[Rfam]
RNA: mir-223 microRNA precursor family
RNA sequence: GUGUAUUUGACAAGCUGAGUCCGACACUCAGUGUGCAGAGUGUCAGUUUGUCAAAUACCCCAAGUGAGGCA
Numbered sequence: 001g002u003g004u005a006u007u008u009g010a011c012a013a014g015c016u017g018a019g020u021c022c023g024a025c026a027c028u029c030a031g032u033g034u035g036c037a038g039a040g041u042g043u044c045a046g047u048u049u050g051u052c053a054a055a056u057a058c059c060c061c062a063a064g065u066g067a068g069g070c071a
Stems, first nucleotide, its partner, number of pairs: 001060001003058014023044004028039002